[Rfam]
RNA: CRISPR RNA direct repeat element
RNA sequence: GUUUCAGAAGGACCCUUGUGGGGUCGAAGA
Numbered sequence: 001g002u003u004u005c006a007g008a009a010g011g012a013c014c015c016u017u018g019u020g021g022g023g024u025c026g027a028a029g030a
Stems, first nucleotide, its partner, number of pairs: 011025005